[Rfam]
RNA: mraW RNA
Organism: Paenarthrobacter aurescens
RNA sequence: UUGAAUGGGAUCUCCAGCCGCCCAUCGAACUGUCUUCCUGGCUCACCUUCCCCUGAGCCAGGCCGGCGGAACGAUAGGCGCGGAUGGGGAUCCGAUUCAAGAAU
Numbered sequence: 001u002u003g004a005a006u007g008g009g010a011u012c013u014c015c016a017g018c019c020g021c022c023c024a025u026c027g028a029a030c031u032g033u034c035u036u037c038c039u040g041g042c043u044c045a046c047c048u049u050c051c052c053c054u055g056a057g058c059c060a061g062g063c064c065g066g067c068g069g070a071a072c073g074a075u076a077g078g079c080g081c082g083g084a085u086g087g088g089g090a091u092c093c094g095a096u097u098c099a100a101g102a103a104u
Stems, first nucleotide, its partner, number of pairs: 010091007020081002023078001024075004031069001032067003037062008